RNA sequence: AGAAAAAACUAAAUAUGCAAUCGUAUAACAUCGGUAAUACGGACCGAAAGUCUCUACCUACCAACCGUAAAUUGGUAGACUACGAUUAGUGCUGAGUUUUAU
Numbered sequence: 001a002g003a004a005a006a007a008a009c010u011a012a013a014u015a016u017g018c019a020a021u022c023g024u025a026u027a028a029c030a031u032c033g034g035u036a037a038u039a040c041g042g043a044c045c046g047a048a049a050g051u052c053u054c055u056a057c058c059u060a061c062c063a064a065c066c067g068u069a070a071a072u073u074g075g076u077a078g079a080c081u082a083c084g085a086u087u088a089g090u091g092c093u094g095a096g097u098u099u100u101a102u
Stems, first nucleotide, its partner, number of pairs: 019087007031047005058078007
RNA: Purine riboswitch aptamer
Organism: Haloplasma contractile